[Rfam]
RNA: glmS glucosamine-6-phosphate activated ribozyme aptamer
Organism: Paenibacillus sp. GSMTC-2017
RNA sequence: UUGGUAAUACAAGCGCCAGAGCUUGCGUGAUGAAUAGACUUGAAGUAGUUGCUAAAAAUAGUGCUAUGAAGGGAUGUUCAUACGGGAAGCUGACGAGGUGAAGGUGUUCGAAACAUUCGGCGGGGACCUUCCGGUAUUUAGCUAGCCAUCCGAAAGCUGUUACGUAAAACGAUUGGGCGACCGAUCGGACAAUCGUACAGCAGGCUGCUGC
Number, nucleotide and partner (000 for none) at each position: 001u000002u000003g000004g000005u000006a000007a000008u000009a000010c000011a000012a000013g000014c000015g000016c000017c000018a000019g000020a091021g090022c089023u088024u087025g000026c085027g000028u082029g000030a000031u000032g000033a000034a000035u000036a000037g000038a000039c000040u000041u000042g000043a000044a000045g000046u000047a000048g000049u000050u000051g000052c000053u000054a000055a000056a000057a000058a000059u000060a000061g000062u000063g000064c000065u000066a000067u000068g000069a000070a000071g000072g000073g000074a000075u000076g000077u000078u000079c000080a000081u000082a028083c000084g000085g026086g000087a024088a023089g022090c021091u020092g000093a000094c000095g000096a000097g000098g000099u000100g131101a130102a129103g128104g127105u000106g000107u000108u120109c119110g118111a117112a000113a000114c000115a000116u000117u111118c110119g109120g108121c000122g000123g000124g000125g000126a000127c104128c103129u102130u101131c100132c152133g151134g150135u000136a000137u000138u000139u000140a000141g000142c000143u000144a000145g000146c000147c000148a000149u000150c134151c133152g132153a000154a000155a000156g201157c200158u199159g198160u197161u000162a000163c000164g000165u000166a000167a000168a000169a000170c187171g186172a185173u184174u183175g182176g181177g000178c000179g000180a000181c176182c175183g174184a173185u172186c171187g170188g000189a000190c000191a000192a000193u000194c000195g000196u000197a160198c159199a158200g157201c156202a000203g000204g000205c000206u000207g000208c000209u000210g000211c000